Overview: Small nucleolar RNA Z199: a 78-nucleotide sequence from Capsella rubella. The family's consensus secondary structure was predicted with PFOLD. Lineage of the source: Eukaryota > Embryophyta > rosids > Brassicaceae > Capsella. Rfam classes the family as a C/D-box small nucleolar RNA. Rfam links the family to the GO terms nucleolus and RNA processing. From the family's description: snoZ199 is a C/D box small nucleolar RNA, which acts as a methylation guide RNA for sites on 18S and 25S rRNA. Rice snoZ199 is reported to be homologous to Arabidopsis snoR13. The match comes from Rfam's covariance-model search (82 bits). For this family Rfam cites "The high diversity of snoRNAs in plants: identification and comparative study of 120 snoRNA genes from Oryza sativa" (Chen et al., Nucleic Acids Res, 2003). Rfam 15.1 lists 953 matches to the family in 222 species.

RNA sequence: GAUCAGGUGAUGAGUAAAUACUGCAACAAUAUGAUGGAGAAAUCUUCAUGAUUAUUAGUAUUUAAGUCUCUGAUGAUC
Numbered sequence: 001g002a003u004c005a006g007g008u009g010a011u012g013a014g015u016a017a018a019u020a021c022u023g024c025a026a027c028a029a030u031a032u033g034a035u036g037g038a039g040a041a042a043u044c045u046u047c048a049u050g051a052u053u054a055u056u057a058g059u060a061u062u063u064a065a066g067u068c069u070c071u072g073a074u075g076a077u078c
Stems, first nucleotide, its partner, number of pairs: 001077001003076003036047004
Dot-bracket structure: (.(((..............................((((....))))..........................)))).